[Rfam]
RNA sequence: UUCUUAUCUAGAGAUGUGGAGGGACUUGGCCCUAUGAUACCUCGGCAGCAGAUUUUUACGUUUGUAAAAACACUGUGCUAAUUCCAACAGAUUAAUUCUGAAAGAUAAGAA
Numbered sequence: 001u002u003c004u005u006a007u008c009u010a011g012a013g014a015u016g017u018g019g020a021g022g023g024a025c026u027u028g029g030c031c032c033u034a035u036g037a038u039a040c041c042u043c044g045g046c047a048g049c050a051g052a053u054u055u056u057u058a059c060g061u062u063u064g065u066a067a068a069a070a071c072a073c074u075g076u077g078c079u080a081a082u083u084c085c086a087a088c089a090g091a092u093u094a095a096u097u098c099u100g101a102a103a104g105a106u107a108a109g110a111a
Stems, first nucleotide, its partner, number of pairs: 001111008013043002016040002021032003026087004044079004049075002051071001053069004083103001088100004
The family of this 111-nucleotide RNA sequence from Jeotgalibacillus soli is "SAM riboswitch aptamer (S box leader)". Rfam describes the family as follows. The SAM riboswitch is found upstream of a number of genes which code for proteins involved in methionine or cysteine biosynthesis in Gram-positive bacteria. Taxonomically the source falls in Jeotgalibacillus (Bacteria, Bacillati, Bacilli, Caryophanales). A search with the family's covariance model found it, with a score of 80 bits.